Shown here is a 64-nucleotide sequence from Myotis davidii, a member of the family "mir-9242 microRNA precursor family".
RNA sequence: GGCCUCCCUCUGUGGGGCAAUUGAUCACGGGGCUCCACAAUCAAUUGCCCAGCAAAGGGAGGCC
Numbered sequence: 001g002g003c004c005u006c007c008c009u010c011u012g013u014g015g016g017g018c019a020a021u022u023g024a025u026c027a028c029g030g031g032g033c034u035c036c037a038c039a040a041u042c043a044a045u046u047g048c049c050c051a052g053c054a055a056a057g058g059g060a061g062g063c064c
Base pairs, nucleotide, nucleotide: 001064002063003062004061005060006059007058008057009056011054012053013052015050016049017048018047019046020045021044022043023042024041025040029036030035

Gene Ontology terms of the family: RISC complex and miRNA-mediated post-transcriptional gene silencing. The family has 2 seed sequences and 940 matches in Rfam 15.1. Taxonomically the source falls in Myotis (Eukaryota, Chordata, Teleostomi, Chiroptera).